Source information:
The record is a 172-nucleotide RNA from Proteiniborus sp. DW1, which matches "Group II catalytic intron D1-D4-3" in Rfam. It scores 148 bits against the family's covariance model. The organism belongs to Proteiniborus, within Bacteria.
[Rfam]
RNA sequence: UUCAUCGUGAGGUGGAAUUUGAAGGAAGUCGGCGGCAAAACUCCGGUCUGAGGUACACGAAUCACAUUCGAGGCUUAACCCUGUGGAUGAGGUUGCGCAACAAACCAAAGUCCUAAACUAUCCGAAACAGGGAAAGUAAAUGUGGCAGAUAUAUGGAGUGAAAGUUUACGUU
Numbered sequence: 001u002u003c004a005u006c007g008u009g010a011g012g013u014g015g016a017a018u019u020u021g022a023a024g025g026a027a028g029u030c031g032g033c034g035g036c037a038a039a040a041c042u043c044c045g046g047u048c049u050g051a052g053g054u055a056c057a058c059g060a061a062u063c064a065c066a067u068u069c070g071a072g073g074c075u076u077a078a079c080c081c082u083g084u085g086g087a088u089g090a091g092g093u094u095g096c097g098c099a100a101c102a103a104a105c106c107a108a109a110g111u112c113c114u115a116a117a118c119u120a121u122c123c124g125a126a127a128c129a130g131g132g133a134a135a136g137u138a139a140a141u142g143u144g145g146c147a148g149a150u151a152u153a154u155g156g157a158g159u160g161a162a163a164g165u166u167u168a169c170g171u172u
Base pairs, nucleotide, nucleotide: 001016002015003014004013005012006011028172030170031169035165036164040159041158042157043156044155045154046150047149048148049147050146062145063144064143065142066141067140073137074136075135079132080131081130082129083128084127085113086112087111088110091106092105093104094103